This 124-nucleotide sequence from Pontimicrobium aquaticum belongs to the Rfam family "SAM riboswitch aptamer (S box leader)".
Pairs were carried over by alignment from the consensus structure, which is taken from published work.
Gene Ontology term of the family: regulation of gene expression.
The SAM riboswitch is found upstream of a number of genes which code for proteins involved in methionine or cysteine biosynthesis in Gram-positive bacteria.
NCBI's taxonomy places the organism under Bacteria, Pseudomonadati, Flavobacteriia, Flavobacteriales, Pontimicrobium.
[Rfam]
RNA sequence: AUGUUAUCAAGAAAGGUGGAGGGAAUAGACCCUGUGAAACCUUAGCAACCCUUUAGUAAUAAAGAAGGUGCUAAAUUCUACCUAAAAAAGCGAUUCAUUUAUCGUGGAUUUGGAUAGAUAACUC
Numbered sequence: 001a002u003g004u005u006a007u008c009a010a011g012a013a014a015g016g017u018g019g020a021g022g023g024a025a026u027a028g029a030c031c032c033u034g035u036g037a038a039a040c041c042u043u044a045g046c047a048a049c050c051c052u053u054u055a056g057u058a059a060u061a062a063a064g065a066a067g068g069u070g071c072u073a074a075a076u077u078c079u080a081c082c083u084a085a086a087a088a089a090g091c092g093a094u095u096c097a098u099u100u101a102u103c104g105u106g107g108a109u110u111u112g113g114a115u116a117g118a119u120a121a122c123u124c
Base pairs, nucleotide, nucleotide: 003122004121005120006119007118008117013043014042015041016040017039021032022031023030026080027079028078029077044072045071046070047069049068050067051064052063053062054061076116081113082112084110085109